[Rfam]
RNA sequence: CAUCAAAUGAAAUGAGUUAUGGGUUAGACCCAACUCAUUUAACAAAAUGAGUUGGGUCUAACCCAUAACUCAUUUAAUUAUAAA
Number, nucleotide and partner (000 for none) at each position: 001c000002a000003u000004c000005a000006a000007a000008u000009g000010a075011a074012a073013u072014g071015a070016g069017u068018u067019a066020u065021g064022g063023g062024u061025u060026a000027g058028a057029c056030c055031c054032a053033a052034c051035u050036c049037a048038u047039u046040u045041a000042a000043c000044a000045a040046a039047a038048u037049g036050a035051g034052u033053u032054g031055g030056g029057u028058c027059u000060a025061a024062c023063c022064c021065a020066u019067a018068a017069c016070u015071c014072a013073u012074u011075u010076a000077a000078u000079u000080a000081u000082a000083a000084a000